A member of the RNA family "mir-19 microRNA precursor family" from Cricetulus griseus, 79 nucleotides long. Gene Ontology terms of the family: miRNA-mediated post-transcriptional gene silencing and RISC complex. The sequence is in the family's curated seed alignment. Lineage of the source: Eukaryota > Craniata > Theria > Glires > Cricetulus. The base pairs follow the family's consensus structure, which was predicted with RNAalifold.
RNA sequence: GUCUAUGGUUAGUUUUGCAGGUUUGCAUCCAGCUGUAUAAUACUCUGCUGUGCAAAUCCAUGCAAAACUGACUGUGGUG
Numbered sequence: 001g002u003c004u005a006u007g008g009u010u011a012g013u014u015u016u017g018c019a020g021g022u023u024u025g026c027a028u029c030c031a032g033c034u035g036u037a038u039a040a041u042a043c044u045c046u047g048c049u050g051u052g053c054a055a056a057u058c059c060a061u062g063c064a065a066a067a068c069u070g071a072c073u074g075u076g077g078u079g
Base pairs, nucleotide, nucleotide: 003077004076005075006074007073008072009071010070011069012068013067014066015065016064017063018062019061020059021058022056023055024054025053026052027051028050031049032048033047